[Rfam]
Nucleotides: 082
Base pairs, nucleotide, nucleotide: 022040023039024038026036027035028034059081060080061079062078063076064075065074066073067072
Number, partner (000 for none) and nucleotide at each position: 001000g002000a003000c004000c005000u006000a007000g008000c009000c010000a011000u012000c013000a014000u015000c016000a017000u018000u019000c020000c021000a022040g023039g024038g025000c026036c027035u028034u029000u030000u031000u032000a033000c034028a035027a036026g037000a038024c039023c040022c041000g042000a043000a044000g045000u046000a047000c048000a049000a050000u051000u052000u053000u054000u055000g056000g057000a058000g059081a060080c061079c062078c063076a064075g065074u066073u067072c068000a069000u070000u071000a072067g073066a074065a075064c076063u077000c078062g079061g080060g081059u082000u